RNA: mir-460 microRNA precursor family
Organism: Triplophysa rosa
RNA sequence: CUUUACAGCUCCUGCAUUGUACACACUGUGCGGAUAGUUAGACGUGCACAGCGCAUACAAUGUGGAUGUCGUGAAG
Numbered sequence: 001c002u003u004u005a006c007a008g009c010u011c012c013u014g015c016a017u018u019g020u021a022c023a024c025a026c027u028g029u030g031c032g033g034a035u036a037g038u039u040a041g042a043c044g045u046g047c048a049c050a051g052c053g054c055a056u057a058c059a060a061u062g063u064g065g066a067u068g069u070c071g072u073g074a075a076g
Stems, first nucleotide, its partner, number of pairs: 012065002015062007024053001026051006